[Rfam]
The family of this 131-nucleotide RNA from Aquabacterium commune is "ZMP/ZTP riboswitch aptamer (pfl RNA motif)". Lineage of the source: Bacteria > Pseudomonadati > Burkholderiales > Sphaerotilaceae > Aquabacterium.

RNA sequence: GCUGCGUUGCGCAACUGGCGAUACAUGGCUGGCCCCAAGGGCGAGCCUGAGGUGGUGAACCACCGGGAAGCGCAACCAACCCUGACCCGUUUCGUUCGGGGUUGCGUCAGCCGUUCGCCUGGGCAGCCCUC
Numbered sequence: 001g002c003u004g005c006g007u008u009g010c011g012c013a014a015c016u017g018g019c020g021a022u023a024c025a026u027g028g029c030u031g032g033c034c035c036c037a038a039g040g041g042c043g044a045g046c047c048u049g050a051g052g053u054g055g056u057g058a059a060c061c062a063c064c065g066g067g068a069a070g071c072g073c074a075a076c077c078a079a080c081c082c083u084g085a086c087c088c089g090u091u092u093c094g095u096u097c098g099g100g101g102u103u104g105c106g107u108c109a110g111c112c113g114u115u116c117g118c119c120u121g122g123g124c125a126g127c128c129c130u131c
Base pairs, nucleotide, nucleotide: 003079006076007075008074009073010072011071012070015067016066017119018118019117020116021115052063053062054061055060108126110124111123112122